A member of the RNA family "MIR398 microRNA precursor family" from Ricinus communis, 138 nucleotides long.
The family has 14 seed sequences and 627 matches in Rfam 15.1.
It is one of the family's seed sequences.
Taxonomically the source falls in Ricinus (Eukaryota, Viridiplantae, Malpighiales, Acalyphoideae).
RNA sequence: AGGAUUCCUACAGGAGCGACCUGAGAAUCACAUGUGGACAUUCUUAGCUAUAUAUACCCUUAUCAUCUUCUCUUAUUUUGGGUUUAUUGUACUUUGGUGUUCUUUCAUGUGUUCUCAGGUCGCCCCUGCCGGGCUUUC
Number, nucleotide and partner (000 for none) at each position: 001a000002g000003g000004a000005u000006u000007c132008c131009u000010a000011c128012a127013g126014g125015a000016g123017c122018g121019a120020c000021c000022u000023g116024a115025g114026a113027a000028u000029c111030a110031c109032a108033u107034g000035u000036g000037g000038a000039c000040a000041u000042u000043c000044u000045u000046a000047g000048c000049u000050a000051u000052a000053u000054a000055u000056a000057c000058c000059c000060u000061u000062a000063u000064c000065a000066u000067c000068u000069u000070c000071u000072c000073u000074u000075a000076u000077u000078u000079u000080g000081g000082g000083u000084u000085u000086a000087u000088u000089g000090u000091a000092c000093u000094u000095u000096g000097g000098u000099g000100u000101u000102c000103u000104u000105u000106c000107a033108u032109g031110u030111g029112u000113u026114c025115u024116c023117a000118g000119g000120u019121c018122g017123c016124c000125c014126c013127u012128g011129c000130c000131g008132g007133g000134c000135u000136u000137u000138c000